[Rfam]
Nucleotides: 126
Base pairs, nucleotide, nucleotide: 015119016118017117018116019115020114021113022111033090035089036088041086042085043084044083048058049057065079066078067077068076069075070074
Number, partner (000 for none) and nucleotide at each position: 001000c002000u003000g004000a005000u006000a007000u008000u009000c010000g011000c012000g013000g014000g015119g016118g017117g018116a019115a020114g021113g022111u023000g024000a025000g026000a027000a028000c029000c030000u031000g032000a033090g034000a035089c036088c037000a038000a039000g040000g041086u042085u043084c044083g045000c046000g047000u048058c049057g050000a051000g052000c053000a054000g055000c056000g057049c058048g059000a060000g061000a062000c063000a064000a065079c066078g067077a068076u069075g070074c071000g072000c073000a074070g075069c076068a077067u078066c079065g080000g081000c082000c083044c084043g085042g086041a087000g088036g089035g090033u091000g092000a093000g094000c095000c096000g097000c098000a099000a100000a101000g102000c103000g104000g105000c106000g107000a108000a109000u110000c111022a112000u113021c114020c115019u116018u117017c118016c119015c120000c121000c122000c123000a124000c125000c126000c
RtT RNA: a 126-nucleotide sequence from Sodalis sp. TME1. Pairs were carried over by alignment from the consensus structure, which is taken from published work. The literature on the family includes a 1991 paper in Nucleic Acids Res by Bosl and Kersten, "A novel RNA product of the tyrT operon of Escherichia coli". From the family's description: This family represents a bacterial cis-regulatory element known as RtT RNA. The exact function of RtT is unknown although it is thought that it may be involved in changing the cellular response in relation to amino acid starvation.